[Rfam]
RNA sequence: UUGCCCAUCGGGGCCAUGGAUACCUGUUCU
Numbered sequence: 001u002u003g004c005c006c007a008u009c010g011g012g013g014c015c016a017u018g019g020a021u022a023c024c025u026g027u028u029c030u
Stems, first nucleotide, its partner, number of pairs: 003014004017026003